RNA sequence: CUUCUGUCCUCCCCGCACAGGAGGGCAGAGCGGGGCCCGGCGCUCUCUGCCCUGACGGCGUCCCGGGCCCAUAUCGCUCCGGGCUGCGGUGCCAAGAGGGUUGAGGGUCCCUCUUCGGUGC
Numbered sequence: 001c002u003u004c005u006g007u008c009c010u011c012c013c014c015g016c017a018c019a020g021g022a023g024g025g026c027a028g029a030g031c032g033g034g035g036c037c038c039g040g041c042g043c044u045c046u047c048u049g050c051c052c053u054g055a056c057g058g059c060g061u062c063c064c065g066g067g068c069c070c071a072u073a074u075c076g077c078u079c080c081g082g083g084c085u086g087c088g089g090u091g092c093c094a095a096g097a098g099g100g101u102u103g104a105g106g107g108u109c110c111c112u113c114u115u116c117g118g119u120g121c
Stems, first nucleotide, its partner, number of pairs: 003029004008024005033070008042059002044055002075091004080086002094115007
Dot-bracket structure: ..((((.(((((.......))))).))))...((((((((.((((........))..))...))))))))....((((.((...)).))))..(((((((........)))))))......
RNA: Streptomyces sRNA scr5239